Shown here is a 134-nucleotide RNA sequence from Scyliorhinus torazame, a member of the family "Small nucleolar RNA SNORA41".
The match comes from Rfam's covariance-model search (82 bits).
On this family, see Huttenhofer et al., EMBO J 2001: "RNomics: an experimental approach that identifies 201 candidates for novel, small, non-messenger RNAs in mouse".
The family's RNA type in Rfam is H/ACA-box small nucleolar RNA.
Pairs were carried over by alignment from the consensus structure, which was predicted with PFOLD.
Nucleotides: 134
Base pairs, nucleotide, nucleotide: 003060004059005058006057017046018045019044020043021042022041023040024039025038074123075122076121077120078119089114091112092111094109095108096107097106
Number, partner (000 for none) and nucleotide at each position: 001000u002000u003060c004059c005058a006057c007000a008000g009000a010000u011000a012000c013000u014000g015000g016000u017046c018045u019044g020043g021042a022041a023040u024039u025038a026000c027000u028000u029000g030000g031000u032000u033000u034000g035000u036000a037000g038025u039024g040023g041022u042021u043020u044019c045018a046017g047000c048000a049000u050000u051000c052000c053000u054000c055000c056000u057006g058005u059004g060003g061000g062000a063000u064000a065000g066000u067000a068000a069000c070000u071000g072000u073000u074123g075122u076121a077120c078119u079000g080000c081000u082000u083000u084000c085000a086000u087000a088000a089114a090000a091112c092111c093000c094109u095108u096107u097106c098000u099000g100000c101000a102000a103000u104000u105000u106097g107096a108095a109094a110000u111092g112091g113000c114089u115000a116000a117000g118000u119078a120077g121076u122075g123074c124000a125000a126000u127000g128000g129000a130000c131000a132000g133000a134000a

ACA41 is a member of the H/ACA class of snoRNA that guide the sites of modification of uridines to pseudouridines. Rfam links the family to the GO terms RNA processing and nucleolus. Lineage of the source: Eukaryota > Opisthokonta > Bilateria > Galeomorphii > Scyliorhinus.